[Rfam]
RNA sequence: UCCAACCUUCAGGGCAAAGUGAAACAGUAAAAACUGUUAAUUCUUGACCGGUGGUAAUUACUGAUUGUGAAAUAUGCAGUACAGUAUUAGUCCACGAACCUUUAGAGAGGCCGAAUGAGUGAGAAUCUCGUACCGACAGUAUAGUCUGGAUGAAAGAAGUGUAAG
Numbered sequence: 001u002c003c004a005a006c007c008u009u010c011a012g013g014g015c016a017a018a019g020u021g022a023a024a025c026a027g028u029a030a031a032a033a034c035u036g037u038u039a040a041u042u043c044u045u046g047a048c049c050g051g052u053g054g055u056a057a058u059u060a061c062u063g064a065u066u067g068u069g070a071a072a073u074a075u076g077c078a079g080u081a082c083a084g085u086a087u088u089a090g091u092c093c094a095c096g097a098a099c100c101u102u103u104a105g106a107g108a109g110g111c112c113g114a115a116u117g118a119g120u121g122a123g124a125a126u127c128u129c130g131u132a133c134c135g136a137c138a139g140u141a142u143a144g145u146c147u148g149g150a151u152g153a154a155a156g157a158a159g160u161g162u163a164a165g
Base pairs, nucleotide, nucleotide: 004162007159008158009157010156017045018044019043047145048144049135050134051095052094053093054092090133091132099110100109115131116130117129118128119127137148138147139146
A member of the RNA family "FMN riboswitch aptamer (RFN element)" from [Clostridium] fimetarium, 165 nucleotides long. Rfam describes the family as follows. The RFN element is a highly conserved domain that is found frequently in the 5'-untranslated regions of prokaryotic mRNAs that encode for flavin mononucleotide (FMN) biosynthesis and transport proteins. A search with the family's covariance model found it, with a score of 80 bits. Taxonomically the source falls in Lachnoclostridium (Bacteria, Bacillati, Bacillota, Lachnospirales). The family's consensus secondary structure is taken from published work.